[Rfam]
RNA sequence: ACGAGGUGAUGACCUAUGAAUUGACAGCCAGUUGUCUGAAACGUCUGCCUGUCAGUUCUGUAGGCCACUGCUGCGU
Numbered sequence: 001a002c003g004a005g006g007u008g009a010u011g012a013c014c015u016a017u018g019a020a021u022u023g024a025c026a027g028c029c030a031g032u033u034g035u036c037u038g039a040a041a042c043g044u045c046u047g048c049c050u051g052u053c054a055g056u057u058c059u060g061u062a063g064g065c066c067a068c069u070g071c072u073g074c075g076u
Base pairs, nucleotide, nucleotide: 001076002075003074005072006071007070008069010067011066013064014063015062016061018058019057020056021055022054023053024052025051026050027049029047030046031045
Dot-bracket structure: (((.((((.((.((((.((((((((((.(((.............))).))))))))))..)))).)).)))).)))

The record is a 76-nucleotide RNA from Austrofundulus limnaeus, which matches "mir-192/215 microRNA precursor family" in Rfam. This family represents the human microRNA (miRNA) precursors mir-192 and mir-215. Animal miRNAs are transcribed as ~70nt precursors and subsequently processed by the Dicer enzyme to give a ~22nt product. In this case the mature sequence comes from the 5' arm of the precursor. A reference for the family is Lagos-Quintana et al. (2003), "New microRNAs from mouse and human", RNA. Pairs were carried over by alignment from the consensus structure, which was predicted with PFOLD. Lineage of the source: Eukaryota > Neopterygii > Eurypterygia > Cyprinodontiformes > Austrofundulus.